[Rfam]
RNA: Plasmid-encoded Shigella sRNA A
RNA sequence: UGGCUGCGAAAAGAGUUUUAAUUUUUUAAAGAGACCGGAGAAAAUUAGCGGUCUCAGGCGACAGGCACAUACACGAAAUCAUUCAGGA
Number, nucleotide and partner (000 for none) at each position: 001u067002g066003g000004c064005u063006g062007c060008g059009a000010a000011a000012a000013g055014a054015g053016u000017u051018u050019u047020a046021a045022u044023u043024u000025u000026u000027u000028a000029a000030a000031g000032a000033g000034a000035c000036c000037g000038g000039a000040g000041a000042a000043a023044a022045u021046u020047a019048g000049c000050g018051g017052u000053c015054u014055c013056a000057g000058g000059c008060g007061a000062c006063a005064g004065g000066c002067a001068c000069a000070u000071a000072c087073a000074c000075g000076a000077a000078a000079u000080c000081a000082u000083u000084c000085a000086g000087g072088a000